[Rfam]
RNA sequence: UGCAGCCCUGUCAAAUUCGAUCCCUGCCUCUUCCGUGGCGGGGACCGGCCAACCGGCUGCCACAGCAGCUUCCGUAGUCCGUGAGCCCCUCGUCCCUUUCCUGUGGGACACUGGGGGCUAAAAUCACACCCACGGACACAU
Numbered sequence: 001u002g003c004a005g006c007c008c009u010g011u012c013a014a015a016u017u018c019g020a021u022c023c024c025u026g027c028c029u030c031u032u033c034c035g036u037g038g039c040g041g042g043g044a045c046c047g048g049c050c051a052a053c054c055g056g057c058u059g060c061c062a063c064a065g066c067a068g069c070u071u072c073c074g075u076a077g078u079c080c081g082u083g084a085g086c087c088c089c090u091c092g093u094c095c096c097u098u099u100c101c102u103g104u105g106g107g108a109c110a111c112u113g114g115g116g117g118c119u120a121a122a123a124u125c126a127c128a129c130c131c132a133c134g135g136a137c138a139c140a141u
Base pairs, nucleotide, nucleotide: 002060003059004058005057018047019046021044022043023042024041025040026039027038028037074133075132077130086117087116088115089114090113
Small nucleolar RNA SNORA5: a 141-nucleotide RNA sequence from Ibidorhyncha struthersii. Rfam classes the family as an H/ACA-box small nucleolar RNA. The family is grouped with related families in Rfam's "SNORA5 clan". The base pairs follow the family's consensus structure, which was predicted with RNAfold. ACA5 is a member of the H/ACA class of snoRNA that guide the sites of modification of uridines to pseudouridines. Rfam 15.1 lists 2,226 matches to the family in 629 species.